[Rfam]
RNA: tpke11
RNA sequence: UGCUGGCAACAGGCACGGGCGUCGAGGCAACUCUGCGCCCGUGCAAGCAUGUUGAGGGCAGGAAGAGACGA
Numbered sequence: 001u002g003c004u005g006g007c008a009a010c011a012g013g014c015a016c017g018g019g020c021g022u023c024g025a026g027g028c029a030a031c032u033c034u035g036c037g038c039c040c041g042u043g044c045a046a047g048c049a050u051g052u053u054g055a056g057g058g059c060a061g062g063a064a065g066a067g068a069c070g071a
Base pairs, nucleotide, nucleotide: 001011002010013044014043015042016041017040018039019038020037021036024033025032026031